[Rfam]
RNA sequence: AGGAGGCUGGUUUCAUGUGGUGGUUUAGAUUUAGCUGACAAUGUCUAGCACCAUAUGAAAUCAGUGUCCU
Numbered sequence: 001a002g003g004a005g006g007c008u009g010g011u012u013u014c015a016u017g018u019g020g021u022g023g024u025u026u027a028g029a030u031u032u033a034g035c036u037g038a039c040a041a042u043g044u045c046u047a048g049c050a051c052c053a054u055a056u057g058a059a060a061u062c063a064g065u066g067u068c069c070u
Stems, first nucleotide, its partner, number of pairs: 001070004005065001007064009017054006026047004
The record is a 70-nucleotide RNA from Xenopus laevis, which matches "mir-29 microRNA precursor family" in Rfam. A reference for the family is Ambros (2001), "microRNAs: tiny regulators with great potential", Cell. The family's consensus secondary structure was predicted with PFOLD. Rfam's curators write: This family represents the microRNA (miRNA) precursors mir-29. Gene Ontology terms of the family: RISC complex and gene silencing by miRNA. A search with the family's covariance model found it, with a score of 68 bits.